[Rfam]
RNA sequence: CCUGUGGGCGCGGGGUGCCGACCCUCCCGGUCGGCUGAGAGAACACCCGCUGAACCUGAACUAGGUAGUACUAGCGGAGGGACGUCCCGGUGAGUCACA
Numbered sequence: 001c002c003u004g005u006g007g008g009c010g011c012g013g014g015g016u017g018c019c020g021a022c023c024c025u026c027c028c029g030g031u032c033g034g035c036u037g038a039g040a041g042a043a044c045a046c047c048c049g050c051u052g053a054a055c056c057u058g059a060a061c062u063a064g065g066u067a068g069u070a071c072u073a074g075c076g077g078a079g080g081g082a083c084g085u086c087c088c089g090g091u092g093a094g095u096c097a098c099a
Base pairs, nucleotide, nucleotide: 006087007086008085009084010083011049012048013047014046016043017035018034019033020032021031022030023029055080056079057078061074062073063072064071
RNA: TPP riboswitch aptamer (THI element)